[Rfam]
Mammalian CPEB3 ribozyme: an 83-nucleotide RNA sequence from Alligator mississippiensis.

RNA sequence: GGUCAUCUUCUGGGGGCCAUAGCAGAAGCAUUCACAUUGUGACCCCUGUCAGGUAAUACCUGGUAAUACUUGUGAAUUCUGCU
Numbered sequence: 001g002g003u004c005a006u007c008u009u010c011u012g013g014g015g016g017c018c019a020u021a022g023c024a025g026a027a028g029c030a031u032u033c034a035c036a037u038u039g040u041g042a043c044c045c046c047u048g049u050c051a052g053g054u055a056a057u058a059c060c061u062g063g064u065a066a067u068a069c070u071u072g073u074g075a076a077u078u079c080u081g082c083u
Stems, first nucleotide, its partner, number of pairs: 013046004018041001021083007028040003050072006

The base pairs follow the family's consensus structure, which is taken from published work.